[Rfam]
RNA: Small nucleolar RNA U105B
Organism: Propithecus coquereli
RNA sequence: UUUGGUGCGGCCGAGCACAGCGCUGCUGCCUCUCGAGACUCUGAGGUUGCUCAGUCUCAAAGUAAAUGCUCUGAUGCACUGUGA
Numbered sequence: 001u002u003u004g005g006u007g008c009g010g011c012c013g014a015g016c017a018c019a020g021c022g023c024u025g026c027u028g029c030c031u032c033u034c035g036a037g038a039c040u041c042u043g044a045g046g047u048u049g050c051u052c053a054g055u056c057u058c059a060a061a062g063u064a065a066a067u068g069c070u071c072u073g074a075u076g077c078a079c080u081g082u083g084a
Stems, first nucleotide, its partner, number of pairs: 005079005010021002013018001032054002035052003